[Rfam]
RNA sequence: AAUUAACUUCGGGAUUAGGUGAAAUUCCUAACCGGCGGUGAUAUCUCUCUUGCGAGGUUUAGCCCGCUAGCUGUUAAGAUUAACAGUUGAUUUGGUAAGAAUCCAAAGCCGACAGUAAAGUCUGGAAGAGAGAAGUAGAUU
Numbered sequence: 001a002a003u004u005a006a007c008u009u010c011g012g013g014a015u016u017a018g019g020u021g022a023a024a025u026u027c028c029u030a031a032c033c034g035g036c037g038g039u040g041a042u043a044u045c046u047c048u049c050u051u052g053c054g055a056g057g058u059u060u061a062g063c064c065c066g067c068u069a070g071c072u073g074u075u076a077a078g079a080u081u082a083a084c085a086g087u088u089g090a091u092u093u094g095g096u097a098a099g100a101a102u103c104c105a106a107a108g109c110c111g112a113c114a115g116u117a118a119a120g121u122c123u124g125g126a127a128g129a130g131a132g133a134a135g136u137a138g139a140u141u
Stems, first nucleotide, its partner, number of pairs: 003139002006136005017029003031121002033111002035067004062109002070087003091107005113124003